[Rfam]
RNA sequence: CCCCUUGAGUCCGGCGCGGCAGCCUCCUACAUUGGACCUGUCUCGCAAGAGACUAUGGACAUAAACGCGCGUGAAAUAAGCGGAUCGGACCCGGGGGCGGUACCCGGCGGCUCCACCAGACACCCGGCGUUGGCGGGACAUGGGGCCGAAACAGGAUCGACGAACGUGUAAAGACGCGGCUUUGUCCCGGUGAGGUACCACCGUUAUCGGUCCGUAAAGCAUAAUUGCCAACGACAAUCGUGCUCCGGUUGCCGUCGCUGCUUAAGCAGUGACAAGACCGAAAUCUAAGCCCUUGCGCCUAGCAGCGUAAGGCGGGGUUCGCAGGCACCUGGCAACAGAAGCCUGCACU
Number, nucleotide and partner (000 for none) at each position: 001c000002c000003c000004c000005u000006u000007g000008a000009g000010u000011c000012c000013g000014g000015c000016g000017c000018g000019g000020c000021a000022g000023c000024c000025u000026c000027c000028u000029a000030c000031a000032u000033u000034g000035g000036a000037c000038c000039u000040g053041u052042c051043u050044c049045g000046c000047a000048a000049g044050a043051g042052a041053c040054u000055a000056u000057g187058g186059a185060c184061a183062u000063a000064a000065a000066c000067g180068c179069g177070c176071g175072u174073g000074a000075a000076a000077u000078a000079a000080g000081c166082g165083g000084a000085u163086c162087g161088g000089a000090c000091c107092c106093g105094g104095g103096g000097g000098c000099g000100g000101u000102a000103c095104c094105c093106g092107g091108c148109g147110g146111c145112u144113c143114c142115a000116c000117c000118a000119g000120a000121c000122a000123c000124c000125c000126g000127g000128c000129g000130u000131u000132g000133g000134c000135g000136g000137g000138a000139c000140a000141u000142g114143g113144g112145g111146c110147c109148g108149a000150a000151a000152c000153a000154g000155g000156a000157u000158c000159g000160a000161c087162g086163a085164a000165c082166g081167u000168g000169u000170a000171a000172a000173g000174a072175c071176g070177c069178g000179g068180c067181u000182u000183u061184g060185u059186c058187c057188c203189g202190g201191u200192g000193a000194g213195g212196u000197a211198c210199c209200a191201c190202c189203g188204u000205u000206a000207u000208c000209g199210g198211u197212c195213c194214g000215u000216a000217a000218a000219g000220c000221a000222u000223a000224a000225u000226u000227g000228c000229c000230a000231a000232c000233g000234a000235c000236a000237a000238u000239c000240g000241u000242g000243c000244u000245c000246c000247g000248g000249u000250u000251g000252c000253c000254g000255u000256c000257g000258c000259u000260g000261c000262u000263u000264a000265a000266g000267c000268a000269g000270u000271g000272a000273c000274a000275a000276g000277a000278c000279c000280g000281a000282a000283a000284u000285c000286u000287a000288a000289g000290c000291c000292c000293u000294u000295g000296c000297g000298c000299c000300u000301a000302g000303c000304a000305g000306c000307g000308u000309a000310a000311g000312g000313c000314g000315g330316g329317g328318u327319u000320c000321g346322c345323a344324g343325g342326c341327a318328c317329c316330u315331g000332g000333c000334a000335a000336c000337a000338g000339a000340a000341g326342c325343c324344u323345g322346c321347a000348c000349u000
RNA: Alphaproteobacteria transfer-messenger RNA
Organism: Histidinibacterium lentulum